[Rfam]
RNA sequence: CGGGUCGGUCGGAGUGAUCGCCGGUGUGCUGCCGCAAGGCAGGGCGCUGGAGGAAAGUCCGGACACCACAGGGCAGCAUGCCACGUGAAAGCGUGGGGGCUGCGGUGCAAGCCGCGGUCACAGACAGUGUCACAGAAAACAAACCGCCUGCGUGAAAGCGCGGGCAAGGGUGAAAAGGCGGGGUAAGAGCCCACCGCCCCGACCGCGAGGAAGGGGGCACGACAAACCUCAUGCGGUGCAAGACAGAACAGGAGAAACGGCCCGCCUGGCCGCAAGUCCCGAAAGGGAUGGAUAGCUCCGGGUAAUAGUCGCACCACUGCGCGAGCAGGGGCGGGCUGGUCUUCCAGCCUGACAGAUAAAUGAUCAUGACCGUGUGCCGCAAGGCGUGCGGAGACAGAAUCCGGCUUAUGAGGGCCGAUCCACAAU
Dot-bracket structure: .((((((((((..((((((.(((((((.((((......)))).)))))))....[[[.[[[[[((((........((((((((((......)))))((((((((((....))))))))).)((...(((((............((((((((((....))))))))..)).......((.(((.......))).))(((((..((....))..)))).)..)))..)))))))))))))...(((.......(((.........................................))).........)))...................................................))))))................................]]]]]]]].)...))))))))).....

The family of this 426-nucleotide RNA from Prosthecobacter vanneervenii is "Bacterial RNase P class A". Rfam classes the family as a ribozyme.